[Rfam]
RNA sequence: CCCAGCCUUGAAAGGCUGGGCUGUUGUAUGCCGUCCCUAUCGGGACU
Numbered sequence: 001c002c003c004a005g006c007c008u009u010g011a012a013a014g015g016c017u018g019g020g021c022u023g024u025u026g027u028a029u030g031c032c033g034u035c036c037c038u039a040u041c042g043g044g045a046c047u
Base pairs, nucleotide, nucleotide: 001020002019003018004017005016006015007014008013033046034045035044036043037042
RNA: Acido-Lenti-1 RNA